Shown here is a 126-nucleotide RNA sequence from Gallibacterium salpingitidis, a member of the family "Aggregatibacter sRNA 54". Validated by RT-PCR, expression up-regulated during growth. Rfam classes the family as a small RNA. The family's consensus secondary structure was predicted with RNAfold. On this family, see Oogai et al., DNA Res 2017: "Small RNA repertoires and their intraspecies variation in Aggregatibacter actinomycetemcomitans". Lineage of the source: Bacteria > Pseudomonadati > Gammaproteobacteria > Pasteurellaceae > Gallibacterium.
RNA sequence: GAGUAACAUUCCGCCCGAUAUUUUUUCUAUGAGGACAAACACUUUGGACAGUCACAGUCGAUACUGGUUUUAUAUUUUUAACUAAUCUUUUCGCCUCAUAGCCUUUGCUUAUCGGCGAAAAGCCGG
Numbered sequence: 001g002a003g004u005a006a007c008a009u010u011c012c013g014c015c016c017g018a019u020a021u022u023u024u025u026u027c028u029a030u031g032a033g034g035a036c037a038a039a040c041a042c043u044u045u046g047g048a049c050a051g052u053c054a055c056a057g058u059c060g061a062u063a064c065u066g067g068u069u070u071u072a073u074a075u076u077u078u079u080a081a082c083u084a085a086u087c088u089u090u091u092c093g094c095c096u097c098a099u100a101g102c103c104u105u106u107g108c109u110u111a112u113c114g115g116c117g118a119a120a121a122g123c124c125g126g
Stems, first nucleotide, its partner, number of pairs: 001014001003012001005010001026085001028084002031079005044067004051062003087122009